[Rfam]
RNA sequence: CUCUUAUCGCGAGCGGCGGAGGGACUGGCCCGAUGAAGCCCGGCAACCUGCCCCGUGUACGGCGCGGCGGGGCGAGGUGCUAAAUCCUGCAGGAGAGGCGUUCUCCUGGGAGAUAAGAG
Numbered sequence: 001c002u003c004u005u006a007u008c009g010c011g012a013g014c015g016g017c018g019g020a021g022g023g024a025c026u027g028g029c030c031c032g033a034u035g036a037a038g039c040c041c042g043g044c045a046a047c048c049u050g051c052c053c054c055g056u057g058u059a060c061g062g063c064g065c066g067g068c069g070g071g072g073c074g075a076g077g078u079g080c081u082a083a084a085u086c087c088u089g090c091a092g093g094a095g096a097g098g099c100g101u102u103c104u105c106c107u108g109g110g111a112g113a114u115a116a117g118a119g
Base pairs, nucleotide, nucleotide: 001119002118003117004116005115006114007113008112013041015040016039017038021031022030023029025089027087028086042081043080044079045078047077048076050073051072052071053070054069055068056067085111090108091107092106093105094104095103
This 119-nucleotide RNA from Brockia lithotrophica belongs to the Rfam family "SAM riboswitch aptamer (S box leader)". It scores 86 bits against the family's covariance model.